[Rfam]
RNA sequence: CGACCCGCGGCGGGAGAGUCCCGCAGCACCCGUGCGGGCGCCGUAGGAGCAACUCCUCCCAGGAAUCUCUCAGGCACCCACACCGCCGCGGUCAG
Numbered sequence: 001c002g003a004c005c006c007g008c009g010g011c012g013g014g015a016g017a018g019u020c021c022c023g024c025a026g027c028a029c030c031c032g033u034g035c036g037g038g039c040g041c042c043g044u045a046g047g048a049g050c051a052a053c054u055c056c057u058c059c060c061a062g063g064a065a066u067c068u069c070u071c072a073g074g075c076a077c078c079c080a081c082a083c084c085g086c087c088g089c090g091g092u093c094a095g
Base pairs, nucleotide, nucleotide: 006090007089008088009087010086011085012084013083020038021037022036023035040075041074042073043071047069048068049067053062054061

Rfam assigns this 95-nucleotide RNA sequence from Georgenia muralis to the family "Glycine riboswitch aptamer". It scores 64 bits against the family's covariance model. The base pairs follow the family's consensus structure.